A member of the RNA family "Small nucleolar RNA SNORA48" from Cricetulus griseus, 144 nucleotides long. The snoRNA ACA 48 has been identified to guide pseudouridylation of the residue U3797 in the 28S rRNA subunit. Gene Ontology terms of the family: nucleolus and RNA processing. The organism belongs to Cricetulus, within Eukaryota. The literature on the family includes a 1997 paper in J Mol Biol by Ofengand and Bakin, "Mapping to nucleotide resolution of pseudouridine residues in large subunit ribosomal RNAs from representative eukaryotes, prokaryotes, archaebacteria, mitochondria and chloroplasts". It is annotated as an H/ACA-box small nucleolar RNA.

RNA sequence: AACCCCUGACAAUGGGCAAAGAAACACCUUGUGGAGGUGUUGUUUUUAUAUCAGCCAGAGGCAGAGCAGAUGGCAGUCCUUUGUUCAUCCUAGUUUUGAUGCCUGACUUGGUAGCCAAAGCUGUUUCAUGCCUAGGGUACAUAA
Numbered sequence: 001a002a003c004c005c006c007u008g009a010c011a012a013u014g015g016g017c018a019a020a021g022a023a024a025c026a027c028c029u030u031g032u033g034g035a036g037g038u039g040u041u042g043u044u045u046u047u048a049u050a051u052c053a054g055c056c057a058g059a060g061g062c063a064g065a066g067c068a069g070a071u072g073g074c075a076g077u078c079c080u081u082u083g084u085u086c087a088u089c090c091u092a093g094u095u096u097u098g099a100u101g102c103c104u105g106a107c108u109u110g111g112u113a114g115c116c117a118a119a120g121c122u123g124u125u126u127c128a129u130g131c132c133u134a135g136g137g138u139a140c141a142u143a144a
Stems, first nucleotide, its partner, number of pairs: 003061002006058003013053003019047003023041006082139005098132001100130001104128003109123002112120001
Dot-bracket structure: ..((.(((....(((...(((.((((((.......))))))...)))...)))..))).))....................(((((...........(.(...(((..((.(.......).))..))).).)..))))).....